Rfam assigns this 123-nucleotide sequence from Hydra vulgaris to the family "U4atac minor spliceosomal RNA". Lineage of the source: Eukaryota > Eumetazoa > Hydrozoa > Anthoathecata > Hydra.

RNA sequence: AUCGUCCUUAUCGAGAGUAGUUUGAUAGGCCUAUGAUCGUCUAGUGAGUCCUGUCUUGCUAACAAAUCGAAUUCAACACUUAUGCCCCCGCUUCGUACUGGAGUGCGGGUAAUUUUUGCAACC
Dot-bracket structure: ....(.(((.....))).)((...(((((.(......(.....)...).)))))...))........................((((..(((((.....)))))..)))).............

The match comes from Rfam's covariance-model search (53 bits). The family's RNA type in Rfam is spliceosomal small nuclear RNA. For this family Rfam cites "Evolutionary conservation of minor U12-type spliceosome between plants and humans" (Lorkovic et al., RNA, 2005).